[Rfam]
Overview
Shown here is a 351-nucleotide RNA sequence from Parafilimonas terrae, a member of the family "Bacterial RNase P class A". Rfam classes the family as a ribozyme. The match comes from Rfam's covariance-model search (208 bits).

RNA sequence: CUACAAACCCGCGCUAUCGUUCCGAAUUAUAUUUGGAAAGGAAAGUCCGGACAGCACAGGGCAGCCCACCAUGUGUUAAACAUGGCUUUCCCGGUUUCCGGGAAAAGAGAAAGUGCCACAGAAAAUAACAGCCUCUCCCUAACCCUCUCCUAAGGAAAGGGAAUGGCAAGGCUACGGUGAAAAUGUGAGGUAAGAGCUCACGUUCUGUUGCAGUGAUGCAACAGGAGGGUAAACCUUGGGCGCUGCAAUGCCACGUAAAGAAGCUAUAGAGUUGCCCGCUCUGUUUCUGGGUAGGCAGCACAGAUAAAUGAUAGCUUAAAACAGAAUCCGGCUUAUGGGGUUUGUAGUUCU
Numbered sequence: 001c002u003a004c005a006a007a008c009c010c011g012c013g014c015u016a017u018c019g020u021u022c023c024g025a026a027u028u029a030u031a032u033u034u035g036g037a038a039a040g041g042a043a044a045g046u047c048c049g050g051a052c053a054g055c056a057c058a059g060g061g062c063a064g065c066c067c068a069c070c071a072u073g074u075g076u077u078a079a080a081c082a083u084g085g086c087u088u089u090c091c092c093g094g095u096u097u098c099c100g101g102g103a104a105a106a107g108a109g110a111a112a113g114u115g116c117c118a119c120a121g122a123a124a125a126u127a128a129c130a131g132c133c134u135c136u137c138c139c140u141a142a143c144c145c146u147c148u149c150c151u152a153a154g155g156a157a158a159g160g161g162a163a164u165g166g167c168a169a170g171g172c173u174a175c176g177g178u179g180a181a182a183a184u185g186u187g188a189g190g191u192a193a194g195a196g197c198u199c200a201c202g203u204u205c206u207g208u209u210g211c212a213g214u215g216a217u218g219c220a221a222c223a224g225g226a227g228g229g230u231a232a233a234c235c236u237u238g239g240g241c242g243c244u245g246c247a248a249u250g251c252c253a254c255g256u257a258a259a260g261a262a263g264c265u266a267u268a269g270a271g272u273u274g275c276c277c278g279c280u281c282u283g284u285u286u287c288u289g290g291g292u293a294g295g296c297a298g299c300a301c302a303g304a305u306a307a308a309u310g311a312u313a314g315c316u317u318a319a320a321a322c323a324g325a326a327u328c329c330g331g332c333u334u335a336u337g338g339g340g341u342u343u344g345u346a347g348u349u350c351u
Base pairs, nucleotide, nucleotide: 001347002346003345004344005343006342007341008340009339010338011336013315014314015313016312017311018310020038021037022036023035024034025033026032027031043334044333045332047331048330049329050328051327052245053244054243055242059277060276061275062274064241065240066239067238068237069085070084071083072082073081086107087105088104089103090102091101092100093099094098108236109235113234114233115230116229117228129176131172132171133170134169137166138165184202185201186200187199188198189197204226205224206223207222208221209220210219211218212217249297250296251295252294259288260287261286262285263284264283268282269281270280271279272278